This 68-nucleotide RNA from Coregonus sp. 'balchen' belongs to the Rfam family "Small nucleolar RNA SNORD63". Rfam classes the family as a C/D-box small nucleolar RNA. A search with the family's covariance model found it, with a score of 49 bits. Rfam describes the family as follows. snoRNA U63 is found in both humans and mice.
[Rfam]
RNA sequence: GUGCCGUGAUGCUUAUUCAACACAUCAUUCUUAUUGUAUGGUGAAGAAACUUCAGAAAACUGAGCACU
Numbered sequence: 001g002u003g004c005c006g007u008g009a010u011g012c013u014u015a016u017u018c019a020a021c022a023c024a025u026c027a028u029u030c031u032u033a034u035u036g037u038a039u040g041g042u043g044a045a046g047a048a049a050c051u052u053c054a055g056a057a058a059a060c061u062g063a064g065c066a067c068u
Base pairs, nucleotide, nucleotide: 001067002066003065004064